[Rfam]
RNA: Bacterial large signal recognition particle RNA
RNA sequence: CCGUGCUAGACGGGGAGGUAGCGGUGCCCUGAACCUGCAAUCCGCUAUAGCAGGGUUGAAUUCUCGGGCUGAGGCUCUGUUCGGUCAGAGUCUGGCCUGGAUAAGUGGUGUUGAAGGCCGGGUCCUAUGCGACGCAGACCCAUGAAUUCCGUCAGGUCCGGAAGGAAGCAGCGGUAAGUGGGCUUCUUGCGGGUGCCAUGGGGUCACCUGGCCGGAGCUAACUGUUCGGGUAACGUCUGACCGAAAGAGUCGAUGCCGAGUGCACGG
Numbered sequence: 001c002c003g004u005g006c007u008a009g010a011c012g013g014g015g016a017g018g019u020a021g022c023g024g025u026g027c028c029c030u031g032a033a034c035c036u037g038c039a040a041u042c043c044g045c046u047a048u049a050g051c052a053g054g055g056u057u058g059a060a061u062u063c064u065c066g067g068g069c070u071g072a073g074g075c076u077c078u079g080u081u082c083g084g085u086c087a088g089a090g091u092c093u094g095g096c097c098u099g100g101a102u103a104a105g106u107g108g109u110g111u112u113g114a115a116g117g118c119c120g121g122g123u124c125c126u127a128u129g130c131g132a133c134g135c136a137g138a139c140c141c142a143u144g145a146a147u148u149c150c151g152u153c154a155g156g157u158c159c160g161g162a163a164g165g166a167a168g169c170a171g172c173g174g175u176a177a178g179u180g181g182g183c184u185u186c187u188u189g190c191g192g193g194u195g196c197c198a199u200g201g202g203g204u205c206a207c208c209u210g211g212c213c214g215g216a217g218c219u220a221a222c223u224g225u226u227c228g229g230g231u232a233a234c235g236u237c238u239g240a241c242c243g244a245a246a247g248a249g250u251c252g253a254u255g256c257c258g259a260g261u262g263c264a265c266g267g
Base pairs, nucleotide, nucleotide: 001267002266003265004264005263006262009057010056011055012030013029014028015027017025019023034054035053036052037051038050063260064259065258067257068256069255073251074250075249076248077247080245081244082243083242084241085240086239087238088237089236093232094231097229098228099227100226101225102224105222106221107219108218109217116213117212118211119210120209121208122207123206124202125201126200127199128198129197130193133191134190135189136188137187139182140181141180142179143178149174150173151172152171157166158165159164